Background:
The family of this 62-nucleotide RNA sequence is "Xanthine riboswitch aptamer (NMT1 RNA)". Gene Ontology term of the family: purine nucleobase binding. The base pairs follow the family's consensus structure, which is taken from published work. A reference for the family is Yu and Breaker (2020), "A bacterial riboswitch class senses xanthine and uric acid to regulate genes associated with purine oxidation", RNA.
RNA sequence: UCAUCGAGUAGAAGCCGGCAACGGCGUGCCUUCUCAGGCCGCCGUGGGUCAUUGCUCCGGGA
Numbered sequence: 001u002c003a004u005c006g007a008g009u010a011g012a013a014g015c016c017g018g019c020a021a022c023g024g025c026g027u028g029c030c031u032u033c034u035c036a037g038g039c040c041g042c043c044g045u046g047g048g049u050c051a052u053u054g055c056u057c058c059g060g061g062a
Base pairs, nucleotide, nucleotide: 006057007056008055009054010053015047018049019048021045022044023043024042025041026040